[Rfam]
Rfam assigns this 360-nucleotide RNA from Janibacter melonis to the family "Bacterial RNase P class A". NCBI's taxonomy places the organism under Bacteria, Actinomycetota, Actinomycetes, Micrococcales, Janibacter. It is annotated as a ribozyme.
RNA sequence: UGAGUCAGCCGGGCGGCCGCGGCAGCGAUGUCGAGGAAAGUCCGGGCUCCGCAGGGCGAGGUGGUGGCUAACGGCCACCCGGGGCGACCCGCGGGACAGUGCCACAGAGAGAAGACCGCCGGUGCUCGCACCGGUAAGGGUGAAAGGGUGGUGUAAGAGACCACCAGCGGGCCGGGUGACCGGUCCGGCUAGGUAAACCCCACCUGGAGCAAGUCCAGACAGUGCGCGCCCGAGGGCUGCCCGCCCGAGCGCACGGGUAGGACGCGACGAGGUCGUCGGCGACGACGGCCCCAGAUGGAUGGCCGCCCAUCCGCCCCUCGGGGCGGUGGACAGAACCCGGCUUACAGGCUGACUCAUCCC
Dot-bracket structure: ((((((((((((((((((.(((((....)))))....[[[.[[[[[((((...[[[[.((((((((((.....)))))(((((....)))).)((...(((((............(((((((((....)))))))..)).......((((((.......)))))).(((((((((....)))))))).)..)))..)))))))))))))...((((.....((((((......((((.]]]]))))..)))))).....)))).......((((((((....))))))))..........)))))))............................]]]]]]]].).))))))))))....